A member of the RNA family "permuted transfer-messenger RNA" from Paramesorhizobium endophyticum, 218 nucleotides long. On this family, see Williams and Bartel, RNA 1996: "Phylogenetic analysis of tmRNA secondary structure". Bacterial tmRNA, also known as 10Sa RNA or SsrA, is named for its dual tRNA and mRNA-like properties. Its role is to liberate the mRNA from a stalled ribosome. By type it is a non-coding RNA gene.
[Rfam]
RNA sequence: GGUGAUAAACGGACGAUGCAAUAAGCCCAUUGGACCCGGGGGCGGUACCCGGCGCCUCCACCAGAAACCGCCGGCUCUUAAGGGCGGCUUCUGAUGGGGGCGAAAUAGGAUCGACAAGGGUGUAAAGAUCGCUCUUUUGCCCGGCAUUGUACCACCGUUAUCGGGCUAACUCAGUAGUUGCAAACGACAACUAUGCGGAAGCUCGUCUCGCUGCUUAA
Numbered sequence: 001g002g003u004g005a006u007a008a009a010c011g012g013a014c015g016a017u018g019c020a021a022u023a024a025g026c027c028c029a030u031u032g033g034a035c036c037c038g039g040g041g042g043c044g045g046u047a048c049c050c051g052g053c054g055c056c057u058c059c060a061c062c063a064g065a066a067a068c069c070g071c072c073g074g075c076u077c078u079u080a081a082g083g084g085c086g087g088c089u090u091c092u093g094a095u096g097g098g099g100g101c102g103a104a105a106u107a108g109g110a111u112c113g114a115c116a117a118g119g120g121u122g123u124a125a126a127g128a129u130c131g132c133u134c135u136u137u138u139g140c141c142c143g144g145c146a147u148u149g150u151a152c153c154a155c156c157g158u159u160a161u162c163g164g165g166c167u168a169a170c171u172c173a174g175u176a177g178u179u180g181c182a183a184a185c186g187a188c189a190a191c192u193a194u195g196c197g198g199a200a201g202c203u204c205g206u207c208u209c210g211c212u213g214c215u216u217a218a
Base pairs, nucleotide, nucleotide: 001141002140003139004138005137014131015130016129017128026120027119028118030117031116032115036052037051038050039049040048053102054101055100056099057098058097059096142157143156144155